[Rfam]
RNA sequence: UUCAGAGGAACUUCUGCUAAAUUCGUCACAUCCUCGAAAAAGCAAAGCUUUUUCUGCGAGGUAAUGCUAACGUAGUAUUCCUUUGUGUGACAACGCAGAAGCCUGCACGUCCAUGUGCA
Numbered sequence: 001u002u003c004a005g006a007g008g009a010a011c012u013u014c015u016g017c018u019a020a021a022u023u024c025g026u027c028a029c030a031u032c033c034u035c036g037a038a039a040a041a042g043c044a045a046a047g048c049u050u051u052u053u054c055u056g057c058g059a060g061g062u063a064a065u066g067c068u069a070a071c072g073u074a075g076u077a078u079u080c081c082u083u084u085g086u087g088u089g090a091c092a093a094c095g096c097a098g099a100a101g102c103c104u105g106c107a108c109g110u111c112c113a114u115g116u117g118c119a
Base pairs, nucleotide, nucleotide: 011101012100013099014098015097016096017095025091026090027089028088029087030086031085104119105118106117107116108115
Rfam assigns this 119-nucleotide RNA from Virgibacillus sp. MSP4-1 to the family "Bacillaceae-1 RNA". NCBI's taxonomy places the organism under Bacteria, Bacillati, Bacilli, Caryophanales, Virgibacillus. Rfam classes the family as a small RNA.